The record is a 356-nucleotide RNA from Coralloluteibacterium stylophorae, which matches "Bacterial RNase P class A" in Rfam. By type it is a ribozyme. The source organism's lineage runs through Bacteria, Pseudomonadota, Lysobacterales, Lysobacteraceae and Coralloluteibacterium. A search with the family's covariance model found it, with a score of 302 bits.
RNA sequence: GGAGUCGGCCGGGCGAUCGCGUCAUCCUUCGGGAUGCCGAGGAAAGUCCGGGCUCCACAGGGCAGGGUGCCAGGUAACGCCUGGGCGGCGCGAGCCGACGGAAAGUGCAACAGAGAACAGACCGCCGAUGGCCACCGAACGGGGCACAGGCAAGGGUGAAACGGUGCGGUAAGAGCGCACCGCCCGCGGGGCCAACGCCGCGGGGCACGGCAAACCCCACCCGGAGCAAGACCGAAUAGGGACCUCAUGACGUUGCCCGCGUCGGGUCCGGGUAGGUCGCUCGAGCGCGGCGGCGACGCCGCGCCUAGAGGAAUGAUCGUCCACGACAGAACCCGGCUUACAGGCCGGCUCCGCCA
Numbered sequence: 001g002g003a004g005u006c007g008g009c010c011g012g013g014c015g016a017u018c019g020c021g022u023c024a025u026c027c028u029u030c031g032g033g034a035u036g037c038c039g040a041g042g043a044a045a046g047u048c049c050g051g052g053c054u055c056c057a058c059a060g061g062g063c064a065g066g067g068u069g070c071c072a073g074g075u076a077a078c079g080c081c082u083g084g085g086c087g088g089c090g091c092g093a094g095c096c097g098a099c100g101g102a103a104a105g106u107g108c109a110a111c112a113g114a115g116a117a118c119a120g121a122c123c124g125c126c127g128a129u130g131g132c133c134a135c136c137g138a139a140c141g142g143g144g145c146a147c148a149g150g151c152a153a154g155g156g157u158g159a160a161a162c163g164g165u166g167c168g169g170u171a172a173g174a175g176c177g178c179a180c181c182g183c184c185c186g187c188g189g190g191g192c193c194a195a196c197g198c199c200g201c202g203g204g205g206c207a208c209g210g211c212a213a214a215c216c217c218c219a220c221c222c223g224g225a226g227c228a229a230g231a232c233c234g235a236a237u238a239g240g241g242a243c244c245u246c247a248u249g250a251c252g253u254u255g256c257c258c259g260c261g262u263c264g265g266g267u268c269c270g271g272g273u274a275g276g277u278c279g280c281u282c283g284a285g286c287g288c289g290g291c292g293g294c295g296a297c298g299c300c301g302c303g304c305c306u307a308g309a310g311g312a313a314u315g316a317u318c319g320u321c322c323a324c325g326a327c328a329g330a331a332c333c334c335g336g337c338u339u340a341c342a343g344g345c346c347g348g349c350u351c352c353g354c355c356a
Stems, first nucleotide, its partner, number of pairs: 001352010011341001012321007020039002023036005044339003048336005053226004060258004065222005070084005085099001086097004100217002105215002107211002122155002124151003129146002132143001163181006182206001183204005188198001190196001230278004240269006249263005285304008